Bacterial RNase P class B: a 326-nucleotide RNA from Desulforamulus aquiferis. Rfam classes the family as a ribozyme. A search with the family's covariance model found it, with a score of 151 bits.

RNA sequence: UACAGCGAGUAGUCGCUGCCCUCUAAAGGGCAGAGGAAAGUCGAGACACGCACACCUGCUGGUCAGGUGUAAAAAGGUGCCCGGUGUAAGCCGGGGCAGGGCGACCUGACGACGGUGAAAGUGACUCCCUGAGUCAUUAGUAGCCUAAAGUGCCACAGAAACUAGGUCACCGGGCGACCGGUGAGUGCAAGGGUAAACUCCAUCUGCGUGCAACCCAAAUAGGCGGGGACAAUCGUCACCCGCGGGUAGGGGCACCUCGCAAUGCGAGGAAGGAGAAUAUAUCUCCUUAGAUAGAUGACUACUAAAACAGAAUCUCGCUUACGGCU
Numbered sequence: 001u002a003c004a005g006c007g008a009g010u011a012g013u014c015g016c017u018g019c020c021c022u023c024u025a026a027a028g029g030g031c032a033g034a035g036g037a038a039a040g041u042c043g044a045g046a047c048a049c050g051c052a053c054a055c056c057u058g059c060u061g062g063u064c065a066g067g068u069g070u071a072a073a074a075a076g077g078u079g080c081c082c083g084g085u086g087u088a089a090g091c092c093g094g095g096g097c098a099g100g101g102c103g104a105c106c107u108g109a110c111g112a113c114g115g116u117g118a119a120a121g122u123g124a125c126u127c128c129c130u131g132a133g134u135c136a137u138u139a140g141u142a143g144c145c146u147a148a149a150g151u152g153c154c155a156c157a158g159a160a161a162c163u164a165g166g167u168c169a170c171c172g173g174g175c176g177a178c179c180g181g182u183g184a185g186u187g188c189a190a191g192g193g194u195a196a197a198c199u200c201c202a203u204c205u206g207c208g209u210g211c212a213a214c215c216c217a218a219a220u221a222g223g224c225g226g227g228g229a230c231a232a233u234c235g236u237c238a239c240c241c242g243c244g245g246g247u248a249g250g251g252g253c254a255c256c257u258c259g260c261a262a263u264g265c266g267a268g269g270a271a272g273g274a275g276a277a278u279a280u281a282u283c284u285c286c287u288u289a290g291a292u293a294g295a296u297g298a299c300u301a302c303u304a305a306a307a308c309a310g311a312a313u314c315u316c317g318c319u320u321a322c323g324g325c326u
Stems, first nucleotide, its partner, number of pairs: 004326003007322001008303007016033006038320003042317005047210005052070006075205005080095006096110001097108004111200002114145003122136006150198002152194003167184007214251003255269006270288006
Dot-bracket structure: ...(((((((((((.((((((......))))))....[[[.[[[[[(((((((((((.......))))))....(((((((((((....))))))(((((....)))).)((.(((.....((((((...))))))......)))....(((((............(((((((....))))))).......)))..))))))))))))))...(((................................)))...((((((...))))))((((((.......))))))........))))))).........]]]]]]]].).)))

Ribonuclease P (RNase P) is a ubiquitous endoribonuclease, found in archaea, bacteria and eukarya as well as chloroplasts and mitochondria. Its best characterised activity is the generation of mature 5'-ends of tRNAs by cleaving the 5'-leader elements of precursor-tRNAs. Cellular RNase Ps are ribonucleoproteins. RNA from bacterial RNase Ps retains its catalytic activity in the absence of the protein subunit, i.e. it is a ribozyme.